The family of this 113-nucleotide sequence from Vibrio paucivorans is "Qrr RNA". Rfam links the family to the GO term quorum sensing. The base pairs follow the family's consensus structure, which is taken from published work.
RNA sequence: UGACCCUUCUUAAGCCGAGGGUCACCUAGCCAACUGACGUUGUUAGUGAAUAAUUUUGUUCACAAUGUAUAUAAAUACAUAGCCAAUCGUAAUCUACGGUUGGUUUUUUUUUG
Numbered sequence: 001u002g003a004c005c006c007u008u009c010u011u012a013a014g015c016c017g018a019g020g021g022u023c024a025c026c027u028a029g030c031c032a033a034c035u036g037a038c039g040u041u042g043u044u045a046g047u048g049a050a051u052a053a054u055u056u057u058g059u060u061c062a063c064a065a066u067g068u069a070u071a072u073a074a075a076u077a078c079a080u081a082g083c084c085a086a087u088c089g090u091a092a093u094c095u096a097c098g099g100u101u102g103g104u105u106u107u108u109u110u111u112u113g
Stems, first nucleotide, its partner, number of pairs: 001024006040074004046063007083103008

Taxonomically the source falls in Vibrio (Bacteria, Pseudomonadota, Gammaproteobacteria, Vibrionaceae). About the family: This family represents a set of small RNAs (the Qrr RNAs) that are thought to be involved in the regulation of quorum sensing in Vibrio species. For this family Rfam cites "The Small RNA Chaperone Hfq and Multiple Small RNAs Control Quorum Sensing in Vibrio harveyi and Vibrio cholerae" (Lenz et al., Cell, 2004).